[Rfam]
RNA: Fibro-purF RNA
Organism: Fibrobacter sp. UWB4
RNA sequence: GUCCGCUUCCCGGCUUGCACCCGUUUCGGUGAGCUAAGGCCCUCGAGGCAAGGGAGGCUCCACUUCAAAGAGGC
Numbered sequence: 001g002u003c004c005g006c007u008u009c010c011c012g013g014c015u016u017g018c019a020c021c022c023g024u025u026u027c028g029g030u031g032a033g034c035u036a037a038g039g040c041c042c043u044c045g046a047g048g049c050a051a052g053g054g055a056g057g058c059u060c061c062a063c064u065u066c067a068a069a070g071a072g073g074c
Stems, first nucleotide, its partner, number of pairs: 005058007018031004039049003